[Rfam]
Overview
Rfam assigns this 85-nucleotide RNA from Helicoverpa armigera to the family "mir-7 microRNA precursor family". Its family is annotated with miRNA-mediated post-transcriptional gene silencing and RISC complex in the Gene Ontology. The match comes from Rfam's covariance-model search (55 bits). Rfam's curators write: This family represents the microRNA (miRNA) precursor mir-7. The organism belongs to Helicoverpa, within Eukaryota.

RNA sequence: CGCCGCGCGUUGUAUGGAAGACUAGUGAUUUUGUUGUUUUGAUUUGGAUAACAAGAAAUCACUAAUCUCCCUACAAAGCACUGGC
Numbered sequence: 001c002g003c004c005g006c007g008c009g010u011u012g013u014a015u016g017g018a019a020g021a022c023u024a025g026u027g028a029u030u031u032u033g034u035u036g037u038u039u040u041g042a043u044u045u046g047g048a049u050a051a052c053a054a055g056a057a058a059u060c061a062c063u064a065a066u067c068u069c070c071c072u073a074c075a076a077a078g079c080a081c082u083g084g085c
Base pairs, nucleotide, nucleotide: 002085003084004083005082007079008078010076011075012074013073014072016070017069019068020067021066025062026061027060028059029058030057031056034054035053036052037051038050
Dot-bracket structure: .((((.((.(((((.((.(((...(((((((..(((((...........))))).)))))))...))))).))))).))..))))